[Rfam]
RNA: Eukaryotic small subunit ribosomal RNA, nucleotides 620 to 1149
Organism: Telonema subtile
RNA sequence: CAGUUAAAAAGCUCGUAGUUGGAUCUCAGGGUGAGCUCAGUUGGUCAGCCUAAUUGGUCAGAACUGGCUGACUCUCCCUUGUUUCUGAAUCCCGGUCGGAGUUAAUUCUUCGUUCGUGGACUUCAGAUCGUUUACCUUGAAAAAAUUAGAGUGUUCAAAGCGGGCGUUUGCUUGAAUACAUUAGCAUGGAAUAAUGGAAUAGGACCCUGGUUCUAUUUUGUUGGUUUUGAGGACCAGAGUAAUGAUUAAUAGGGAUAGUUGGGGGCAUUCAUAUUUAAUUGUCAGAGGUGAAAUUCUUGGAUUUAUGAAAGAUGAACUUCUGCGAAAGCAUUUGCCAAGGAUGUUUUCAUUAAUCAAGAACGAAAGUUAGGGGAUCGAAGAUGAUCAGAUACCGUCGUAGUCUUAACCAUAAGCUAUGCCGACUAGGGAUUGGGAGCGGUUUGUUCAUUGACCCUCUCAGCACCUUACGAGAAAUCAAAGUUUUUGGGUUCCGGGGGGAGUAUGGUCGCAAGGCUGAAACUUAAAGGAAU
Numbered sequence: 001c002a003g004u005u006a007a008a009a010a011g012c013u014c015g016u017a018g019u020u021g022g023a024u025c026u027c028a029g030g031g032u033g034a035g036c037u038c039a040g041u042u043g044g045u046c047a048g049c050c051u052a053a054u055u056g057g058u059c060a061g062a063a064c065u066g067g068c069u070g071a072c073u074c075u076c077c078c079u080u081g082u083u084u085c086u087g088a089a090u091c092c093c094g095g096u097c098g099g100a101g102u103u104a105a106u107u108c109u110u111c112g113u114u115c116g117u118g119g120a121c122u123u124c125a126g127a128u129c130g131u132u133u134a135c136c137u138u139g140a141a142a143a144a145a146u147u148a149g150a151g152u153g154u155u156c157a158a159a160g161c162g163g164g165c166g167u168u169u170g171c172u173u174g175a176a177u178a179c180a181u182u183a184g185c186a187u188g189g190a191a192u193a194a195u196g197g198a199a200u201a202g203g204a205c206c207c208u209g210g211u212u213c214u215a216u217u218u219u220g221u222u223g224g225u226u227u228u229g230a231g232g233a234c235c236a237g238a239g240u241a242a243u244g245a246u247u248a249a250u251a252g253g254g255a256u257a258g259u260u261g262g263g264g265g266c267a268u269u270c271a272u273a274u275u276u277a278a279u280u281g282u283c284a285g286a287g288g289u290g291a292a293a294u295u296c297u298u299g300g301a302u303u304u305a306u307g308a309a310a311g312a313u314g315a316a317c318u319u320c321u322g323c324g325a326a327a328g329c330a331u332u333u334g335c336c337a338a339g340g341a342u343g344u345u346u347u348c349a350u351u352a353a354u355c356a357a358g359a360a361c362g363a364a365a366g367u368u369a370g371g372g373g374a375u376c377g378a379a380g381a382u383g384a385u386c387a388g389a390u391a392c393c394g395u396c397g398u399a400g401u402c403u404u405a406a407c408c409a410u411a412a413g414c415u416a417u418g419c420c421g422a423c424u425a426g427g428g429a430u431u432g433g434g435a436g437c438g439g440u441u442u443g444u445u446c447a448u449u450g451a452c453c454c455u456c457u458c459a460g461c462a463c464c465u466u467a468c469g470a471g472a473a474a475u476c477a478a479a480g481u482u483u484u485u486g487g488g489u490u491c492c493g494g495g496g497g498g499a500g501u502a503u504g505g506u507c508g509c510a511a512g513g514c515u516g517a518a519a520c521u522u523a524a525a526g527g528a529a530u
Base pairs, nucleotide, nucleotide: 001493003491009490011361013359014358018354019353020352252348253347254346255345256343257342259340260339264336265335266334267333270314271313274310275309276308278306279305281303285296286295287294319330322329323328366407367406368405369404370403371402376400380396381395382394383393418489419488420487421482422481423480425465426464427463430460431459432458433457434456435455436454439452440451441450469476470475495522496521497520504515505514506513507512